[Rfam]
RNA sequence: UGGCAUCCGCGUGACUGGCGCCUGGAGGGAGCACCCUCGGGAAGCGCGGAUCUCCUGAAGCCGCGCGCCUGGGCAUUCCAU
Numbered sequence: 001u002g003g004c005a006u007c008c009g010c011g012u013g014a015c016u017g018g019c020g021c022c023u024g025g026a027g028g029g030a031g032c033a034c035c036c037u038c039g040g041g042a043a044g045c046g047c048g049g050a051u052c053u054c055c056u057g058a059a060g061c062c063g064c065g066c067g068c069c070u071g072g073g074c075a076u077u078c079c080a081u
Stems, first nucleotide, its partner, number of pairs: 003053001005051008015041002017069005026037004058076001060074003
RNA: ZMP/ZTP riboswitch aptamer (pfl RNA motif)